[Rfam]
RNA sequence: CAAAAGGCUCUUUUAAGAGCCACCCAAUUGCUUUGCAAAGGCUGUAU
Numbered sequence: 001c002a003a004a005a006g007g008c009u010c011u012u013u014u015a016a017g018a019g020c021c022a023c024c025c026a027a028u029u030g031c032u033u034u035g036c037a038a039a040g041g042c043u044g045u046a047u
Stems, first nucleotide, its partner, number of pairs: 006021006
Rfam assigns this 47-nucleotide RNA sequence from Clupea harengus to the family "Histone 3' UTR stem-loop". The family's RNA type in Rfam is cis-regulatory element. From the family's description: The mRNAs of metazoan histone genes lack a poly-A tail. 3' end processing occurs at a site between a highly conserved stem-loop (modelled by this family) and a purine rich region around 20 nts downstream (the histone downstream element, or HDE). It scores 36 bits against the family's covariance model. The base pairs follow the family's consensus structure, which is taken from published work. On this family, see Williams and Marzluff, Nucleic Acids Res 1995: "The sequence of the stem and flanking sequences at the 3' end of histone mRNA are critical determinants for the binding of the stem-loop binding protein".